[Rfam]
Nucleotides: 238
Stems, first nucleotide, its partner, number of pairs: 007107002015102004026090005037077003049074006110132004114127002134145003162188007203235004214231007
Number, partner (000 for none) and nucleotide at each position: 001000u002000g003000a004000a005000a006000u007107a008106c009000a010000u011000u012000g013000a014000a015102a016101g017100a018099g019000g020000a021000a022000a023000g024000u025000a026090a027089c028088a029087u030086a031000u032000a033000u034000g035000g036000a037077a038076u039075a040000u041000a042000c043000a044000g045000a046000g047000a048000a049074g050073g051072a052071a053070u054069c055000u056000a057000a058000u059000a060000u061000g062000c063000u064000g065000a066000g067000a068000g069054g070053a071052u072051u073050c074049u075039u076038a077037u078000a079000g080000g081000a082000a083000g084000u085000u086030u087029a088028u089027g090026u091000g092000a093000a094000g095000u096000g097000c098000c099018c100017u101016c102015u103000g104000g105000a106008g107007u108000a109000g110132u111131g112130c113129a114127c115126c116000g117000a118000a119000u120000u121000g122000a123000g124000u125000a126115g127114g128000u129113u130112g131111c132110a133000u134145c135144g136143g137000u138000a139000u140000c141000a142000c143136c144135c145134g146000u147000u148000a149000u150000a151000g152000u153000g154000a155000u156000a157000g158000a159000g160000c161000a162188u163187u164186g165185a166184g167183u168182u169000g170000u171000g172000c173000u174000u175000g176000a177000a178000a179000u180000u181000u182168a183167g184166u185165u186164c187163a188162a189000c190000a191000c192000c193000g194000u195000a196000u197000u198000u199000u200000g201000g202000u203235a204234g205233a206232g207000u208000g209000g210000a211000a212000c213000a214231g215230c216229g217228a218227a219226g220225u221000u222000a223000u224000a225220a226219c227218u228217u229216c230215g231214u232206c233205u234204c235203u236000a237000u238000a